[Rfam]
RNA sequence: GUGUGGGCUUAGCCGUGCGGUUACUACGUUAACAUGAACUCUUAUAGUAUUCUUUCAACCCUAACACCACUGGUGCUGUCUCACACACUU
Numbered sequence: 001g002u003g004u005g006g007g008c009u010u011a012g013c014c015g016u017g018c019g020g021u022u023a024c025u026a027c028g029u030u031a032a033c034a035u036g037a038a039c040u041c042u043u044a045u046a047g048u049a050u051u052c053u054u055u056c057a058a059c060c061c062u063a064a065c066a067c068c069a070c071u072g073g074u075g076c077u078g079u080c081u082c083a084c085a086c087a088c089u090u
Stems, first nucleotide, its partner, number of pairs: 002085006012074004017070001019068002025063002

This 90-nucleotide RNA sequence from Octopus sinensis belongs to the Rfam family "Vault RNA".
This family of RNAs are found as part of the enigmatic vault ribonucleoprotein complex. The complex consists of a major vault protein (MVP), two minor vault proteins (VPARP and TEP1), and several small untranslated RNA molecules.
A search with the family's covariance model found it, with a score of 34 bits.
By type it is a non-coding RNA gene.
Rfam 15.1 lists 2,873 matches to the family in 431 species.
Lineage of the source: Eukaryota > Opisthokonta > Eumetazoa > Octopodiformes > Octopus.